The record is a 417-nucleotide RNA sequence from Neoasaia chiangmaiensis, which matches "Bacterial RNase P class A" in Rfam. The family's RNA type in Rfam is ribozyme. Its family is annotated with dimeric ribonuclease P complex, tRNA processing and ribonuclease P activity in the Gene Ontology.

RNA sequence: UCAGACGGUCGGGCGACCGCUGCCGACGGAAUGCGAAUUCCGGAGGUGGAGGAAAGUCCGGGCUCCACGGGAGGACGAUGCCGGCUAACGGCCGGCGGGGGCGACCCUAGGGAAAGUGCCACAGAAAACAAACCGCCUGCCCGGUCUCGGUUGCCUUUGGCCCAUCGGGAUUGCAGGCAAGGGUGAAACGGUGCGGUAAGAGCGCACCGCCCCGCUGGCAACAGCGGGGGCAUGGUAAACCCCAUCGGGAGCAAGACCGAAUAGGAACGGCGGACCGGCGCUUGUCGUGCGGUCAGGGGUUCUCCCGCCCUGUCGUUCGGGUUGGUCGCGUGAGGCUCGCCGCAAGGCGAGUCCCAGAGGAAUGGUCGCCUCGCCGGAAACGGCGGACAGAACCCGGCUUACAGACCGUCUGACAAU
Numbered sequence: 001u002c003a004g005a006c007g008g009u010c011g012g013g014c015g016a017c018c019g020c021u022g023c024c025g026a027c028g029g030a031a032u033g034c035g036a037a038u039u040c041c042g043g044a045g046g047u048g049g050a051g052g053a054a055a056g057u058c059c060g061g062g063c064u065c066c067a068c069g070g071g072a073g074g075a076c077g078a079u080g081c082c083g084g085c086u087a088a089c090g091g092c093c094g095g096c097g098g099g100g101g102c103g104a105c106c107c108u109a110g111g112g113a114a115a116g117u118g119c120c121a122c123a124g125a126a127a128a129c130a131a132a133c134c135g136c137c138u139g140c141c142c143g144g145u146c147u148c149g150g151u152u153g154c155c156u157u158u159g160g161c162c163c164a165u166c167g168g169g170a171u172u173g174c175a176g177g178c179a180a181g182g183g184u185g186a187a188a189c190g191g192u193g194c195g196g197u198a199a200g201a202g203c204g205c206a207c208c209g210c211c212c213c214g215c216u217g218g219c220a221a222c223a224g225c226g227g228g229g230g231c232a233u234g235g236u237a238a239a240c241c242c243c244a245u246c247g248g249g250a251g252c253a254a255g256a257c258c259g260a261a262u263a264g265g266a267a268c269g270g271c272g273g274a275c276c277g278g279c280g281c282u283u284g285u286c287g288u289g290c291g292g293u294c295a296g297g298g299g300u301u302c303u304c305c306c307g308c309c310c311u312g313u314c315g316u317u318c319g320g321g322u323u324g325g326u327c328g329c330g331u332g333a334g335g336c337u338c339g340c341c342g343c344a345a346g347g348c349g350a351g352u353c354c355c356a357g358a359g360g361a362a363u364g365g366u367c368g369c370c371u372c373g374c375c376g377g378a379a380a381c382g383g384c385g386g387a388c389a390g391a392a393c394c395c396g397g398c399u400u401a402c403a404g405a406c407c408g409u410c411u412g413a414c415a416a417u
Stems, first nucleotide, its partner, number of pairs: 001413010011402001012370007020049005027042005054400003058397005063251004071306001073304002076247005081095005096110001097108004111242002116240002118236003133182002135178006190208006209231001210229008255327004265318006297311003301307001334353008